[Rfam]
RNA sequence: CUCUUAUCAAGAGAGGCGGAGGGACUGGCCCUGUGAAGCCUCGGCAGCGGACUUGUGUACAUUCCUGUACACGAGGACUGUGCCAAUUCCUGCAAGCUCGGGUGCUCGAGCUUGGGAGAUAAGAA
Numbered sequence: 001c002u003c004u005u006a007u008c009a010a011g012a013g014a015g016g017c018g019g020a021g022g023g024a025c026u027g028g029c030c031c032u033g034u035g036a037a038g039c040c041u042c043g044g045c046a047g048c049g050g051a052c053u054u055g056u057g058u059a060c061a062u063u064c065c066u067g068u069a070c071a072c073g074a075g076g077a078c079u080g081u082g083c084c085a086a087u088u089c090c091u092g093c094a095a096g097c098u099c100g101g102g103u104g105c106u107c108g109a110g111c112u113u114g115g116g117a118g119a120u121a122a123g124a125a
Stems, first nucleotide, its partner, number of pairs: 002124007013042005021031003025092001027090002043084004048080002052075009088117001093114008